[Rfam]
RNA sequence: UAGCGCCUGUGGCGGAUCCGGCACGAAUCUUUAAAGGCUUCGCAGGCAGCCGGCUCGUGUACGAUCUUGUAGAAUUCAAGUUACACUUGAAUUUAAUGAUUUCU
Numbered sequence: 001u002a003g004c005g006c007c008u009g010u011g012g013c014g015g016a017u018c019c020g021g022c023a024c025g026a027a028u029c030u031u032u033a034a035a036g037g038c039u040u041c042g043c044a045g046g047c048a049g050c051c052g053g054c055u056c057g058u059g060u061a062c063g064a065u066c067u068u069g070u071a072g073a074a075u076u077c078a079a080g081u082u083a084c085a086c087u088u089g090a091a092u093u094u095a096a097u098g099a100u101u102u103c104u
Stems, first nucleotide, its partner, number of pairs: 005047007014067002017064002021060006028053001036051004076090006
A member of the RNA family "RT-5 RNA", 104 nucleotides long. The sequence is in the family's curated seed alignment.